[Rfam]
RNA sequence: AUCUUUGUGCACGGGCAUUAUCUGCGCCAGUGAGGAGUAAUCCGAGGCCAGAUUAUUGCUAAUUGCAAACUAUACCAAUAUCCCGUCUCCUCGACCGGCCGUCAAACGUUGGUCGGAGAGCAAUUUUUGGAAGGGAGUAGUCCUCC
Numbered sequence: 001a002u003c004u005u006u007g008u009g010c011a012c013g014g015g016c017a018u019u020a021u022c023u024g025c026g027c028c029a030g031u032g033a034g035g036a037g038u039a040a041u042c043c044g045a046g047g048c049c050a051g052a053u054u055a056u057u058g059c060u061a062a063u064u065g066c067a068a069a070c071u072a073u074a075c076c077a078a079u080a081u082c083c084c085g086u087c088u089c090c091u092c093g094a095c096c097g098g099c100c101g102u103c104a105a106a107c108g109u110u111g112g113u114c115g116g117a118g119a120g121c122a123a124u125u126u127u128u129g130g131a132a133g134g135g136a137g138u139a140g141u142c143c144u145c146c
Base pairs, nucleotide, nucleotide: 020053021052022051023050024049026048027047028046034043035042036041085121087120088119089118091116092115093114094113095112096111097110098109099108134146135145136144137143

Annotation
Shown here is a 146-nucleotide RNA from Ambispora leptoticha, a member of the family "U4 spliceosomal RNA". NCBI's taxonomy places the organism under Eukaryota, Opisthokonta, Glomeromycotina, Archaeosporales, Ambispora. A search with the family's covariance model found it, with a score of 105 bits. Its Rfam clan is "U4 clan".